The record is a 265-nucleotide RNA, which matches "Bacterial large signal recognition particle RNA" in Rfam.
The family's consensus secondary structure is taken from published work.
It scores 72 bits against the family's covariance model.

RNA sequence: UGGUAGGCUGGGCGGUUUGGGGUCGCCUCUUUCUGGAAAUCCUCGUGAUGCCGGAGCCGUCAACCAGCUGGACGGGGAGGGUUCUCGGACGCGGCGCCGCUCACCCGGGUUGUCGAUGGUCUGUCCUCCGGGAUGCCGGGGGCUGUGAACCGGGUCAGGCCCUGGCGGGAGCAGCCCUAAGCAGUCUCCGUCAUGUUCGGAGGGUAGCGGACCUGAGACCUGGGUCGGUGGUCGGCCGGAAACCCUCCUCAACCUCUGGGAACCG
Numbered sequence: 001u002g003g004u005a006g007g008c009u010g011g012g013c014g015g016u017u018u019g020g021g022g023u024c025g026c027c028u029c030u031u032u033c034u035g036g037a038a039a040u041c042c043u044c045g046u047g048a049u050g051c052c053g054g055a056g057c058c059g060u061c062a063a064c065c066a067g068c069u070g071g072a073c074g075g076g077g078a079g080g081g082u083u084c085u086c087g088g089a090c091g092c093g094g095c096g097c098c099g100c101u102c103a104c105c106c107g108g109g110u111u112g113u114c115g116a117u118g119g120u121c122u123g124u125c126c127u128c129c130g131g132g133a134u135g136c137c138g139g140g141g142g143c144u145g146u147g148a149a150c151c152g153g154g155u156c157a158g159g160c161c162c163u164g165g166c167g168g169g170a171g172c173a174g175c176c177c178u179a180a181g182c183a184g185u186c187u188c189c190g191u192c193a194u195g196u197u198c199g200g201a202g203g204g205u206a207g208c209g210g211a212c213c214u215g216a217g218a219c220c221u222g223g224g225u226c227g228g229u230g231g232u233c234g235g236c237c238g239g240a241a242a243c244c245c246u247c248c249u250c251a252a253c254c255u256c257u258g259g260g261a262a263c264c265g
Base pairs, nucleotide, nucleotide: 001265002264003263004262006058007057008056009055010028011027012026013025014024015023016022017021033054034053035052036051038049064259065258066257067256074250075249076248077247078246079245080244081243082242083241085239086238087237088236092234093233097231098230099229100228101227105224106223107221108220109219118213119212120211121210122209123208124207125203126202127201128200129199130198132194134193135192137190138189141186142185143184144183145182146181152177153176154175155174160169161168162167